[Rfam]
RNA sequence: GUUGUUUGCGGAGAUGGCAUCCUCCCUUAACCGCCGCGUCCUCCUCCUCGCGGCUAAUGAUGCCUGCCAGUCC
Numbered sequence: 001g002u003u004g005u006u007u008g009c010g011g012a013g014a015u016g017g018c019a020u021c022c023u024c025c026c027u028u029a030a031c032c033g034c035c036g037c038g039u040c041c042u043c044c045u046c047c048u049c050g051c052g053g054c055u056a057a058u059g060a061u062g063c064c065u066g067c068c069a070g071u072c073c
Stems, first nucleotide, its partner, number of pairs: 010025004016064006033054006
Dot-bracket structure: .........[[[[..((((((]]]].......((((((..........))))))....)))))).........
About this RNA: A member of the RNA family "Fluoride riboswitch aptamer (crcB RNA motif)" from Paraburkholderia caffeinitolerans, 73 nucleotides long. The match comes from Rfam's covariance-model search (50 bits).